[Rfam]
RNA sequence: UCAGCUGUCUUAUGGGGAGUAGCCUGCUUUCAGCAUUGAAAGCGCCCAUGUCAACAUACUUGAUGCACCUCGAUGCAUCAUGGCAUGGGCAGCAGUCCGGCUUGGCGAGACCAUCGGCGUACCGAGCUACCGGUCAGGGGCGCGGUGUGUCGUGGUAUCCGCCCCAGACCAGG
Numbered sequence: 001u002c003a004g005c006u007g008u009c010u011u012a013u014g015g016g017g018a019g020u021a022g023c024c025u026g027c028u029u030u031c032a033g034c035a036u037u038g039a040a041a042g043c044g045c046c047c048a049u050g051u052c053a054a055c056a057u058a059c060u061u062g063a064u065g066c067a068c069c070u071c072g073a074u075g076c077a078u079c080a081u082g083g084c085a086u087g088g089g090c091a092g093c094a095g096u097c098c099g100g101c102u103u104g105g106c107g108a109g110a111c112c113a114u115c116g117g118c119g120u121a122c123c124g125a126g127c128u129a130c131c132g133g134u135c136a137g138g139g140g141c142g143c144g145g146u147g148u149g150u151c152g153u154g155g156u157a158u159c160c161g162c163c164c165c166a167g168a169c170c171a172g173g
Stems, first nucleotide, its partner, number of pairs: 027042003044090010061080007096173002
RNA: Manganese Mn2+ riboswitch aptamer (yybP-ykoY)
Organism: Corticimicrobacter populi